[Rfam]
RNA sequence: GACUCUGACACGGGGUGCCCGCGACCGCGGGCUGAGAUGAGACCCGCCGAACCUGCUCUCGUCAGCACGAGCGAAGGGAUGGUCACCGAUGAAUCGC
Numbered sequence: 001g002a003c004u005c006u007g008a009c010a011c012g013g014g015g016u017g018c019c020c021g022c023g024a025c026c027g028c029g030g031g032c033u034g035a036g037a038u039g040a041g042a043c044c045c046g047c048c049g050a051a052c053c054u055g056c057u058c059u060c061g062u063c064a065g066c067a068c069g070a071g072c073g074a075a076g077g078g079a080u081g082g083u084c085a086c087c088g089a090u091g092a093a094u095c096g097c
Base pairs, nucleotide, nucleotide: 006085007084008083009082011046012045013044014043016040017032018031019030020029021028052077053076054075058071059070060069061068
This 97-nucleotide RNA from Pseudoclavibacter caeni belongs to the Rfam family "TPP riboswitch aptamer (THI element)". Gene Ontology term of the family: thiamine pyrophosphate binding. The family's consensus secondary structure is taken from published work.